RNA sequence: CCGAAUGAUACUAGCGGGAGAGAUCUGGGAAAUCUAGGCGCCGAAGGAGAAAUUCCUUAAAAAUCGCUUUUUUUAAGGAGCAAACUCUCAGGCAAAAGUACUGCUAGUAGACGGGACUCUGGAGAGUUUCUCAUAAAGAGAACACCAAAGGGGAAGCCGCAAAGCGGCGAAUCUCUCAGGUUCAAGGACAGAGGA
Numbered sequence: 001c002c003g004a005a006u007g008a009u010a011c012u013a014g015c016g017g018g019a020g021a022g023a024u025c026u027g028g029g030a031a032a033u034c035u036a037g038g039c040g041c042c043g044a045a046g047g048a049g050a051a052a053u054u055c056c057u058u059a060a061a062a063a064u065c066g067c068u069u070u071u072u073u074u075a076a077g078g079a080g081c082a083a084a085c086u087c088u089c090a091g092g093c094a095a096a097a098g099u100a101c102u103g104c105u106a107g108u109a110g111a112c113g114g115g116a117c118u119c120u121g122g123a124g125a126g127u128u129u130c131u132c133a134u135a136a137a138g139a140g141a142a143c144a145c146c147a148a149a150g151g152g153g154a155a156g157c158c159g160c161a162a163a164g165c166g167g168c169g170a171a172u173c174u175c176u177c178a179g180g181u182u183c184a185a186g187g188a189c190a191g192a193g194g195a
Stems, first nucleotide, its partner, number of pairs: 001114003010108008022039001024038006040093003046089001047087003053080011117193005126143001128142004144181003150177001152174003
A member of the RNA family "glycine-GGAnGA riboswitch aptamer" from Desulfosporosinus sp. I2, 195 nucleotides long. The literature on the family includes a 2017 paper in Proc Natl Acad Sci U S A by Weinberg et al., "Bioinformatic analysis of riboswitch structures uncovers variant classes with altered ligand specificity". It scores 114 bits against the family's covariance model. The family is grouped with related families in Rfam's "Glycine riboswitch clan". Taxonomically the source falls in Desulfosporosinus (Bacteria, Bacillati, Bacillota, Desulfitobacteriaceae). glycine-GGAnGA riboswitch is a variant of glycine riboswitch that have in common a U69A change. Its family is annotated with glycine biosynthetic process in the Gene Ontology.